[Rfam]
RNA sequence: GGCCGGACCCAAUGCACGGGUUGGCUCACGAACCGGGUCAGGCCUUGAUCGGAGCAGCCCUAAGUGGUUUCAGCCCGGUGCCGUUGGUGUUCUGGCCACU
Numbered sequence: 001g002g003c004c005g006g007a008c009c010c011a012a013u014g015c016a017c018g019g020g021u022u023g024g025c026u027c028a029c030g031a032a033c034c035g036g037g038u039c040a041g042g043c044c045u046u047g048a049u050c051g052g053a054g055c056a057g058c059c060c061u062a063a064g065u066g067g068u069u070u071c072a073g074c075c076c077g078g079u080g081c082c083g084u085u086g087g088u089g090u091u092c093u094g095g096c097c098a099c100u
Stems, first nucleotide, its partner, number of pairs: 004094004009087006015078001017077006024069001026067004035060004043052002